[Rfam]
RNA sequence: CACCCGUCGUGGCAUUGCGACAUGGGCGCAAAGGCUGGAAUUGGAACAGGGGCCAGCCGCGCGUGCGAUGGGGUAGCGUAAGGGUCGGUAGUCGGGGGACUGCCGACCCUUAAUUU
Numbered sequence: 001c002a003c004c005c006g007u008c009g010u011g012g013c014a015u016u017g018c019g020a021c022a023u024g025g026g027c028g029c030a031a032a033g034g035c036u037g038g039a040a041u042u043g044g045a046a047c048a049g050g051g052g053c054c055a056g057c058c059g060c061g062c063g064u065g066c067g068a069u070g071g072g073g074u075a076g077c078g079u080a081a082g083g084g085u086c087g088g089u090a091g092u093c094g095g096g097g098g099a100c101u102g103c104c105g106a107c108c109c110u111u112a113a114u115u116u
Base pairs, nucleotide, nucleotide: 003072004071005070006069007068008067009066010065011064012062013061015031016030017029018028019027033058034057035056036055037054038053041050042049080111081110082109083108084107085106086105087104088103089102090101091100092099093098
The record is a 116-nucleotide RNA from Xanthomonas oryzae, which matches "Xanthomonadaceae sRNA asX1" in Rfam. The source organism's lineage runs through Bacteria, Pseudomonadati, Pseudomonadota, Xanthomonas oryzae and Xanthomonas oryzae pv. oryzae. Rfam's curators put it in the seed alignment. Pairs were carried over by alignment from the consensus structure, which was predicted with CMfinder. By type it is a small RNA.